[Rfam]
RNA sequence: CCGCAGGGACGACCCUGCAUCAAAAGGCCAAUUUCCGAGGACGACCUCA
Dot-bracket structure: ..((((((....))))))..................((((....)))).